Overview: Rfam assigns this 118-nucleotide sequence from Bernardetia litoralis to the family "SAM riboswitch aptamer (S box leader)". Its Rfam clan is "SAM clan". Its family is annotated with regulation of gene expression in the Gene Ontology. The base pairs follow the family's consensus structure, which is taken from published work. The match comes from Rfam's covariance-model search (49 bits).
RNA sequence: GAUUUAUAAAGAAGUACAGAGAGAACAGGCUCAAAGAUGUACUGGCAACCUGCCAUUAUUUUACCAAAAUAAGCAAGGUGCUAACUCCUGCCUAAAUCAAAUUUUUUCUUUUUAAGAU
Numbered sequence: 001g002a003u004u005u006a007u008a009a010a011g012a013a014g015u016a017c018a019g020a021g022a023g024a025a026c027a028g029g030c031u032c033a034a035a036g037a038u039g040u041a042c043u044g045g046c047a048a049c050c051u052g053c054c055a056u057u058a059u060u061u062u063a064c065c066a067a068a069a070u071a072a073g074c075a076a077g078g079u080g081c082u083a084a085c086u087c088c089u090g091c092c093u094a095a096a097u098c099a100a101a102u103u104u105u106u107u108c109u110u111u112u113u114a115a116g117a118u
Stems, first nucleotide, its partner, number of pairs: 013043005021032003026090004044082004049078002051075003091116001093114004
Dot-bracket structure: ............(((((...(((..[[[[)))......)))))((((.(((((...................))).))))))....]]]](.((((..............)))).)..